RNA sequence: GGGUGGUCGAUCGUCUUGGUCGAUCAGGGUUUACGUUGGUCGGGCCGCCAGCG
Numbered sequence: 001g002g003g004u005g006g007u008c009g010a011u012c013g014u015c016u017u018g019g020u021c022g023a024u025c026a027g028g029g030u031u032u033a034c035g036u037u038g039g040u041c042g043g044g045c046c047g048c049c050a051g052c053g
Stems, first nucleotide, its partner, number of pairs: 005025008034053007
nhaA-I RNA: a 53-nucleotide RNA from Caulobacter vibrioides. It is one of the family's seed sequences. Rfam classes the family as a riboswitch. The organism belongs to Caulobacter vibrioides, within Bacteria. Acidobacteria, Alphaproteobacteria, Betaproteobacteria and Gammaproteobacteria, Verrucomicrobia, cand. division NC10.